[Rfam]
RNA sequence: CCCAUGGGGGCUGCGAUCCCCUCACGAGGCGCCAUGCCCAAGUAUCGCGUCCAGCUCUCCUUCAGCAAGGACGCGUCUUCAUG
Numbered sequence: 001c002c003c004a005u006g007g008g009g010g011c012u013g014c015g016a017u018c019c020c021c022u023c024a025c026g027a028g029g030c031g032c033c034a035u036g037c038c039c040a041a042g043u044a045u046c047g048c049g050u051c052c053a054g055c056u057c058u059c060c061u062u063c064a065g066c067a068a069g070g071a072c073g074c075g076u077c078u079u080c081a082u083g
Stems, first nucleotide, its partner, number of pairs: 005024006047074006

This 83-nucleotide sequence from Microvirga aerilata belongs to the Rfam family "chrB-a RNA". The base pairs follow the family's consensus structure, which is taken from published work. It is annotated as a cis-regulatory element. Rfam 15.1 lists 347 matches to the family in 339 species.